[Rfam]
RNA: Alphaproteobacterial ar14
RNA sequence: GACAUUCGGAGACGCACGCUCCUCCUCCCAGUGCUCUCCGAUGGAUUGACAGCGUUCCUCCUCCCCGUUGUCGAUCAUCUCAAAUGACGCUCACCGCACUCCUCCCGCGGUGAGCGUUAUUU
Numbered sequence: 001g002a003c004a005u006u007c008g009g010a011g012a013c014g015c016a017c018g019c020u021c022c023u024c025c026u027c028c029c030a031g032u033g034c035u036c037u038c039c040g041a042u043g044g045a046u047u048g049a050c051a052g053c054g055u056u057c058c059u060c061c062u063c064c065c066c067g068u069u070g071u072c073g074a075u076c077a078u079c080u081c082a083a084a085u086g087a088c089g090c091u092c093a094c095c096g097c098a099c100u101c102c103u104c105c106c107g108c109g110g111u112g113a114g115c116g117u118u119a120u121u122u
Stems, first nucleotide, its partner, number of pairs: 007040003011036002014034004044076010087117011